[Rfam]
RNA sequence: UGGCUCGGUUUCCUAGGGGGUGGACUCAGCCUGCUCCACCUCCCCUCAGACGAGCCUAGAGUAGAGAGGCUGGGCUUUCUCCCCUUUAGGAGAGGCGGUUAAGGAAGAAGCCUCCCCUGGGCUGUCCUUGCCCCACAUUU
Numbered sequence: 001u002g003g004c005u006c007g008g009u010u011u012c013c014u015a016g017g018g019g020g021u022g023g024a025c026u027c028a029g030c031c032u033g034c035u036c037c038a039c040c041u042c043c044c045c046u047c048a049g050a051c052g053a054g055c056c057u058a059g060a061g062u063a064g065a066g067a068g069g070c071u072g073g074g075c076u077u078u079c080u081c082c083c084c085u086u087u088a089g090g091a092g093a094g095g096c097g098g099u100u101a102a103g104g105a106a107g108a109a110g111c112c113u114c115c116c117c118u119g120g121g122c123u124g125u126c127c128u129u130g131c132c133c134c135a136c137a138u139u140u
Stems, first nucleotide, its partner, number of pairs: 002056006016043009066134001068132003072128003078121003088113003
Shown here is a 140-nucleotide sequence from Galemys pyrenaicus, a member of the family "Small Cajal body specific RNA 21". From the family's description: scaRNAs are a specific class of small nuclear RNAs which localise to the Cajal bodies and guide the modification of RNA polymerase II transcribed spliceosomal RNAs U1, U2, U4, U5 and U12. For this family Rfam cites "Cajal body-specific small nuclear RNAs: a novel class of 2'-O-methylation and pseudouridylation guide RNAs" (Darzacq et al., EMBO J, 2002). Lineage of the source: Eukaryota > Vertebrata > Gnathostomata > Theria > Galemys. Its family is annotated with RNA processing, nucleolus and Cajal body in the Gene Ontology.